[Rfam]
RNA: Glycine riboswitch aptamer
Organism: bacterium YEK0313
Nucleotides: 131
Stems, first nucleotide, its partner, number of pairs: 003125001005123005016037004039110003042106002046104003052097004
Number, partner (000 for none) and nucleotide at each position: 001000g002000g003125c004000a005123u006122u007121c008120u009119g010000g011000a012000a013000a014000g015000c016037g017036g018035c019034c020000u021000g022000g023000c024000g025000u026000c027000c028000a029000a030000a031000c032000c033000c034019g035018g036017c037016c038000c039110a040109c041108c042106g043105a044000c045000g046104g047103a048102g049000u050000a051000a052097g053096c054095c055094g056000a057000u058000a059000g060000g061000g062000c063000g064000c065000c066000c067000u068000g069000c070000c071000g072000g073000g074000g075000u076000g077000c078000u079000c080000u081000g082000g083000c084000c085000u086000u087000c088000g089000g090000g091000c092000c093000c094055c095054g096053g097052u098000g099000a100000a101000u102048c103047u104046c105043u106042c107000a108041g109040g110039u111000u112000c113000c114000u115000g116000c117000g118000a119009c120008a121007g122006a123005g124000g125003g126000g127000c128000g129000c130000g131000a